A member of the RNA family "mir-8364 microRNA precursor family" from Pristionchus pacificus, 61 nucleotides long. The family's consensus secondary structure was predicted with RNAalifold. The source organism's lineage runs through Eukaryota, Metazoa, Rhabditida, Diplogasteromorpha and Pristionchus. It scores 70 bits against the family's covariance model. Gene Ontology terms of the family: RISC complex and miRNA-mediated post-transcriptional gene silencing.
[Rfam]
RNA sequence: UCUUCAUUCCGCGUGCUCUCUCACCGGUCUCAGAAGCGAGAGGGCACGCGGAAUGAAGAGA
Numbered sequence: 001u002c003u004u005c006a007u008u009c010c011g012c013g014u015g016c017u018c019u020c021u022c023a024c025c026g027g028u029c030u031c032a033g034a035a036g037c038g039a040g041a042g043g044g045c046a047c048g049c050g051g052a053a054u055g056a057a058g059a060g061a
Stems, first nucleotide, its partner, number of pairs: 001059007010050001012048006019041004
Dot-bracket structure: (((((((..(.((((((.((((...............)))).)))))).)..)))))))..